[Rfam]
RNA sequence: CUGACCCCCGGCGUAGGUCGCGCAAUUUGGGUAAGGUCAUCGAUACCCUCACGUGCGGCUUCGCCGACCUCAUGGGGUAC
Numbered sequence: 001c002u003g004a005c006c007c008c009c010g011g012c013g014u015a016g017g018u019c020g021c022g023c024a025a026u027u028u029g030g031g032u033a034a035g036g037u038c039a040u041c042g043a044u045a046c047c048c049u050c051a052c053g054u055g056c057g058g059c060u061u062c063g064c065c066g067a068c069c070u071c072a073u074g075g076g077g078u079a080c
Stems, first nucleotide, its partner, number of pairs: 003080001004078005009066005015061009029048005036041001

This 80-nucleotide RNA from Orthohepacivirus hominis belongs to the Rfam family "SL669 non-coding RNA". The organism belongs to Orthohepacivirus, within Viruses. The literature on the family includes a 2020 paper in Int J Mol Sci by Romero-Lopez and Berzal-Herranz, "The Role of the RNA-RNA Interactome in the Hepatitis C Virus Life Cycle". It is annotated as a cis-regulatory element. The sequence is in the family's curated seed alignment.